Rfam assigns this 88-nucleotide part of an RNA from Candidatus Calditenuaceae archaeon HR02 to the family "Archaeal large subunit ribosomal RNA". The match comes from Rfam's covariance-model search (2574 bits). Lineage of the source: Archaea > Thermoproteati > Nitrososphaerota > Candidatus Caldarchaeales > Candidatus Calditenuaceae.

RNA sequence: AACUCGGCAAAUUGGCCCCGUAACUUCGGGAGAAGGGGUGCCUGCCUUCCUGCCCGGUGAGGGUGGGUUGGUAGGUCGCAGUGACAAG
Numbered sequence: 001a002a003c004u005c006g007g008c009a010a011a012u013u014g015g016c017c018c019c020g021u022a023a024c025u026u027c028g029g030g031a032g033a034a035g036g037g038g039u040g041c042c043u044g045c046c047u048u049c050c051u052g053c054c055c056g057g058u059g060a061g062g063g064u065g066g067g068u069u070g071g072u073a074g075g076u077c078g079c080a081g082u083g084a085c086a087a088g
Stems, first nucleotide, its partner, number of pairs: 015039005024029001040076007077081001